[Rfam]
Shown here is an 88-nucleotide RNA sequence, a member of the family "GA-cis RNA". The family's consensus secondary structure is taken from published work.
RNA sequence: AUCAGGAAGAACGGCUAUGGGCGAAGCUCAUCAUUUAAUCCGUUCCGACGACUUGCCGCUGAACAAAAGUGAGGGGGCAUUACCGAUU
Numbered sequence: 001a002u003c004a005g006g007a008a009g010a011a012c013g014g015c016u017a018u019g020g021g022c023g024a025a026g027c028u029c030a031u032c033a034u035u036u037a038a039u040c041c042g043u044u045c046c047g048a049c050g051a052c053u054u055g056c057c058g059c060u061g062a063a064c065a066a067a068a069g070u071g072a073g074g075g076g077g078c079a080u081u082a083c084c085g086a087u088u
Stems, first nucleotide, its partner, number of pairs: 009045005017031005055078003059074002063070002
Dot-bracket structure: ........(((((...(((((.....))))).........))))).........(((.((..((....))..)).)))..........